[Rfam]
About this RNA:
This 59-nucleotide RNA from Cellulomonas marina belongs to the Rfam family "msiK RNA". It is annotated as a cis-regulatory element. Pairs were carried over by alignment from the consensus structure, which is taken from published work. Lineage of the source: Bacteria > Actinomycetota > Micrococcales > Cellulomonadaceae > Cellulomonas. A search with the family's covariance model found it, with a score of 64 bits.

RNA sequence: CGCUGACACUCUUCACGACGGAUCGUCCGGCACGUACCUGCCGGUGGAGGGAUGUACCA
Numbered sequence: 001c002g003c004u005g006a007c008a009c010u011c012u013u014c015a016c017g018a019c020g021g022a023u024c025g026u027c028c029g030g031c032a033c034g035u036a037c038c039u040g041c042c043g044g045u046g047g048a049g050g051g052a053u054g055u056a057c058c059a
Stems, first nucleotide, its partner, number of pairs: 009051007027044006